Nucleotides: 081
Base pairs, nucleotide, nucleotide: 009079010078014024015023016022053067054066055065056064057063
Number, partner (000 for none) and nucleotide at each position: 001000a002000u003000a004000c005000a006000u007000u008000c009079g010078c011000u012000c013000a014024g015023g016022a017000c018000a019000g020000g021000u022016u023015c024014c025000g026000c027000u028000a029000g030000a031000u032000u033000u034000u035000a036000g037000a038000a039000a040000a041000u042000a043000a044000u045000u046000c047000a048000u049000a050000u051000u052000a053067g054066c055065u056064c057063c058000g059000u060000a061000c062000a063057g064056g065055a066054g067053u068000c069000u070000u071000u072000u073000u074000u075000u076000a077000u078010g079009c080000c081000c